[Rfam]
RNA sequence: AUAGUUACUUGGCAGAGAAGAUAUCAGAACCCCAAAGUGGUUUUCCCAGGGCGAGGCUCACCCAUUGCAUUCUGGGUGUGUUGAGUCUUGUGAUUUCCCCAAAUGUGAAAAGCUCACUGCAUAAUUUGUGGUAGUGGCAGACUGUGUUUGUGCUCUCCCCGG
Dot-bracket structure: ...........((((.(.(((.((((...........))))))).).((((...(((.(((((..........))))).)))...)))).((((((..(.......).)).).)))))))..............(((...(..(((....)))..)..))).
Rfam assigns this 162-nucleotide RNA from Molossus molossus to the family "U1 spliceosomal RNA".
Taxonomically the source falls in Molossus (Eukaryota, Metazoa, Bilateria, Tetrapoda).
Rfam classes the family as a spliceosomal small nuclear RNA.
The family's consensus secondary structure is taken from published work.
A search with the family's covariance model found it, with a score of 90 bits.
Rfam's curators write: U1 is a small nuclear RNA (snRNA) component of the spliceosome (involved in pre-mRNA splicing). Its 5' end forms complementary base pairs with the 5' splice junction, thus defining the 5' donor site of an intron. There are significant differences in sequence and secondary structure between metazoan and yeast U1 snRNAs, the latter being much longer (568 nucleotides as compared to 164 nucleotides in human). Nevertheless, secondary structure predictions suggest that all U1 snRNAs share a 'common core' consisting of helices I, II, the proximal region of III, and IV. This family does not contain the larger yeast sequences.